[Rfam]
RNA: Streptomyces sRNA scr5239
Organism: Actinacidiphila rubida
RNA sequence: CCUCCGGGCUCCCCGCACAGGAGCGCGGAACGAGGCGAAGGCGUUCUCUGCCCUGACUACGCCGCCGCCUCAGGUCGGCCCUAUCGGGCCCCUGGGGACCGCACACCCCACCGGCCACGGCGCCGACGGCAGCUCCGGGCUGCGGUGCUGGAGAGGUUGAGGGUCCUCUCCCGGCAC
Numbered sequence: 001c002c003u004c005c006g007g008g009c010u011c012c013c014c015g016c017a018c019a020g021g022a023g024c025g026c027g028g029a030a031c032g033a034g035g036c037g038a039a040g041g042c043g044u045u046c047u048c049u050g051c052c053c054u055g056a057c058u059a060c061g062c063c064g065c066c067g068c069c070u071c072a073g074g075u076c077g078g079c080c081c082u083a084u085c086g087g088g089c090c091c092c093u094g095g096g097g098a099c100c101g102c103a104c105a106c107c108c109c110a111c112c113g114g115c116c117a118c119g120g121c122g123c124c125g126a127c128g129g130c131a132g133c134u135c136c137g138g139g140c141u142g143c144g145g146u147g148c149u150g151g152a153g154a155g156g157u158u159g160a161g162g163g164u165c166c167u168c169u170c171c172c173g174g175c176a177c
Stems, first nucleotide, its partner, number of pairs: 003029004008024005032071005040063002043060002045056002075126005081120001086116001132146003136142002150171007